RNA sequence: AGCUUUGCUCAGUGGCAGUAUUGUAGCCAAUGAGGUCUUACCUGAGGCACGAUUAUUGCUAAUUGAAAACUUUUUUCAAAACCCCACCAUGACGACUUGAAAUGUAGUCACCACUGGCAAUUUUUGGCAGUCUCUAUGGAGA
Numbered sequence: 001a002g003c004u005u006u007g008c009u010c011a012g013u014g015g016c017a018g019u020a021u022u023g024u025a026g027c028c029a030a031u032g033a034g035g036u037c038u039u040a041c042c043u044g045a046g047g048c049a050c051g052a053u054u055a056u057u058g059c060u061a062a063u064u065g066a067a068a069a070c071u072u073u074u075u076u077c078a079a080a081a082c083c084c085c086a087c088c089a090u091g092a093c094g095a096c097u098u099g100a101a102a103u104g105u106a107g108u109c110a111c112c113a114c115u116g117g118c119a120a121u122u123u124u125u126g127g128c129a130g131u132c133u134c135u136a137u138g139g140a141g142a
Base pairs, nucleotide, nucleotide: 020053021052022051023050024049026048027047028046034043035042087117088116090113091112094109095108096107097106131142132141133140134139